Overview:
The record is a 155-nucleotide RNA sequence from Callosobruchus maculatus, which matches "Tombusvirus internal replication element (IRE)" in Rfam. On this family, see Monkewich et al., J Virol 2005: "The p92 Polymerase Coding Region Contains an Internal RNA Element Required at an Early Step in Tombusvirus Genome Replication". The family's RNA type in Rfam is cis-regulatory element. The organism belongs to Callosobruchus, within Eukaryota.
[Rfam]
RNA sequence: GGCUGUUGAGUAAGUGUGAAUCUCCCACCGCUAUUUGCACGACAGCUCUCUUUUUUACUGAAGUACGACUCCUCAGUUGGCCAGGUUUCCUACUUAUGUAAGAAAGAGAGCUGUCGUGCAAAUAGCGGUGGGAAAUUCACACUCACCCAACAGCC
Numbered sequence: 001g002g003c004u005g006u007u008g009a010g011u012a013a014g015u016g017u018g019a020a021u022c023u024c025c026c027a028c029c030g031c032u033a034u035u036u037g038c039a040c041g042a043c044a045g046c047u048c049u050c051u052u053u054u055u056u057a058c059u060g061a062a063g064u065a066c067g068a069c070u071c072c073u074c075a076g077u078u079g080g081c082c083a084g085g086u087u088u089c090c091u092a093c094u095u096a097u098g099u100a101a102g103a104a105a106g107a108g109a110g111c112u113g114u115c116g117u118g119c120a121a122a123u124a125g126c127g128g129u130g131g132g133a134a135a136u137u138c139a140c141a142c143u144c145a146c147c148c149a150a151c152a153g154c155c
Base pairs, nucleotide, nucleotide: 001155002154003153004152005151006150007149008148017139018138019137020136021135026130027129028128029127030126037119038118039117040116041115042114043113044112045111046110047109048108049107050106051105052104053103054102055101056100057099058098